[Rfam]
RNA sequence: UGCUCAACCUUGCUUAUCCAACUGGGUUGCGCUAUCUGUUUGCUUAAAAGGGAAAGUGCUUCCCAUUUGGAUGAGUUAGCUUGGGGU
Numbered sequence: 001u002g003c004u005c006a007a008c009c010u011u012g013c014u015u016a017u018c019c020a021a022c023u024g025g026g027u028u029g030c031g032c033u034a035u036c037u038g039u040u041u042g043c044u045u046a047a048a049a050g051g052g053a054a055a056g057u058g059c060u061u062c063c064c065a066u067u068u069g070g071a072u073g074a075g076u077u078a079g080c081u082u083g084g085g086g087u
Base pairs, nucleotide, nucleotide: 003085004084005083006082007081009079012076013075015073016072017071018070019069020068021067023065024064025063026062029059030058031057032056033055035053036052037051
The family of this 87-nucleotide sequence from Ornithorhynchus anatinus is "mir-1420 microRNA precursor family".